[Rfam]
RNA: drz-agam-1 ribozyme
Organism: Hermetia illucens
RNA sequence: CUAUUACCAAACCCUAUCUCCACCUCCACAUGGUAGCCGCUGGGAGCUCUUUCUUAAUGAAAAGCUGCAGACGGAGAAGG
Numbered sequence: 001c002u003a004u005u006a007c008c009a010a011a012c013c014c015u016a017u018c019u020c021c022a023c024c025u026c027c028a029c030a031u032g033g034u035a036g037c038c039g040c041u042g043g044g045a046g047c048u049c050u051u052u053c054u055u056a057a058u059g060a061a062a063a064g065c066u067g068c069a070g071a072c073g074g075a076g077a078a079g080g
Stems, first nucleotide, its partner, number of pairs: 013080003017076001019074002022034003045066004050061002053059001